[Rfam]
RNA: Glycine riboswitch aptamer
RNA sequence: CAACUCUGGAGAGCAUUCACGUAGAGGUAUCCUCUACGUGAAUCACCCAAGGGGAAACCUGCGCGAGCUUCGAGCCUUAGCACAGGGUAACUCUCAGGUACAAGGGACAGAGCCGGGAAG
Number, nucleotide and partner (000 for none) at each position: 001c115002a000003a000004c112005u111006c110007u109008g108009g000010a000011g000012a000013g000014c000015a043016u042017u041018c040019a039020c038021g037022u036023a035024g034025a000026g000027g000028u000029a000030u000031c000032c000033u000034c024035u023036a022037c021038g020039u019040g018041a017042a016043u015044c000045a099046c098047c097048c000049a094050a000051g000052g093053g092054g091055a000056a000057a000058c086059c085060u084061g083062c000063g000064c000065g000066a000067g000068c000069u000070u000071c000072g000073a000074g000075c000076c000077u000078u000079a000080g000081c000082a000083c061084a060085g059086g058087g000088u000089a000090a000091c054092u053093c052094u049095c000096a000097g047098g046099u045100a000101c000102a000103a000104g000105g000106g000107a000108c008109a007110g006111a005112g004113c000114c000115g001116g000117g000118a000119a000120g000